[Rfam]
RNA sequence: GGUCAUGAGUCUCAGUUCAUAGCCCCGGCUAACUGAGCGGCAACCCUCCACCACGGUGGGGUGCUCCGGGUGAAGACCAGGUUGAUUGCAAAGUGCAAUCAGCAAGCGUGGGUC
Number, nucleotide and partner (000 for none) at each position: 001g078002g077003u076004c075005a000006u000007g000008a000009g038010u000011c037012u036013c035014a034015g033016u032017u000018c000019a000020u000021a030022g029023c000024c000025c000026c000027g000028g000029c022030u021031a000032a016033c015034u014035g013036a012037g011038c009039g065040g064041c063042a000043a000044c061045c060046c059047u000048c056049c055050a000051c000052c000053a000054c000055g049056g048057u000058g000059g046060g045061g044062u000063g041064c040065u039066c000067c000068g000069g000070g000071u000072g000073a000074a000075g004076a003077c002078c001079a000080g000081g103082u102083u101084g100085a099086u098087u097088g096089c095090a094091a000092a000093g000094u090095g089096c088097a087098a086099u085100c084101a083102g082103c081104a000105a000106g000107c000108g000109u000110g000111g000112g000113u000114c000
RNA: SAM (S-adenosyl methionine) riboswitch aptamer